The record is a 122-nucleotide sequence from Cebus imitator, which matches "Small nucleolar RNA SNORA26" in Rfam.
Clan: SNORA27 clan.
From the family's description: The snoRNA HBI-6 belong to the H/ACA family of snoRNAs, guiding the pseudouridylation of position U4522 if the 28S rRNA. HBI-6 is the human orthologue of mouse MBI-6 snoRNA.
A search with the family's covariance model found it, with a score of 114 bits.
A reference for the family is Huttenhofer et al. (2001), "RNomics: an experimental approach that identifies 201 candidates for novel, small, non-messenger RNAs in mouse", EMBO J.
RNA sequence: GUGUGCUUUUAAGGUUGAUGCAGUGCUUUAAGGGGCUAACACACAAGGGUAAAGGAAGUCUCCAUAAAACCCAGAAAAGAGAUUCUAAAGCUCCUCUUUGUAUCCUUUCUGGGGUCACAGCU
Numbered sequence: 001g002u003g004u005g006c007u008u009u010u011a012a013g014g015u016u017g018a019u020g021c022a023g024u025g026c027u028u029u030a031a032g033g034g035g036c037u038a039a040c041a042c043a044c045a046a047g048g049g050u051a052a053a054g055g056a057a058g059u060c061u062c063c064a065u066a067a068a069a070c071c072c073a074g075a076a077a078a079g080a081g082a083u084u085c086u087a088a089a090g091c092u093c094c095u096c097u098u099u100g101u102a103u104c105c106u107u108u109c110u111g112g113g114g115u116c117a118c119a120g121c122u
Stems, first nucleotide, its partner, number of pairs: 002051003006047003010043001014040004019035001021032001058116001060114005072100004077095001079093003083090002
The family's RNA type in Rfam is H/ACA-box small nucleolar RNA.